RNA sequence: AAAUAGUUAUAAUAUUUUACUUGUAUAAUUGUUAAGGUAUGGUUAACUAGUUUCUACCCACGACCGAUUAUCUCGUGGACUACAGGUAAAAAAUUUGUAUGU
Numbered sequence: 001a002a003a004u005a006g007u008u009a010u011a012a013u014a015u016u017u018u019a020c021u022u023g024u025a026u027a028a029u030u031g032u033u034a035a036g037g038u039a040u041g042g043u044u045a046a047c048u049a050g051u052u053u054c055u056a057c058c059c060a061c062g063a064c065c066g067a068u069u070a071u072c073u074c075g076u077g078g079a080c081u082a083c084a085g086g087u088a089a090a091a092a093a094u095u096u097g098u099a100u101g102u
Stems, first nucleotide, its partner, number of pairs: 018088008029049001031047005058078006

A member of the RNA family "Purine riboswitch aptamer" from Turicibacter sp. H121, 102 nucleotides long. Rfam links the family to the GO term purine nucleobase biosynthetic process. It scores 67 bits against the family's covariance model. NCBI's taxonomy places the organism under Bacteria, Bacillati, Erysipelotrichia, Turicibacteraceae, Turicibacter.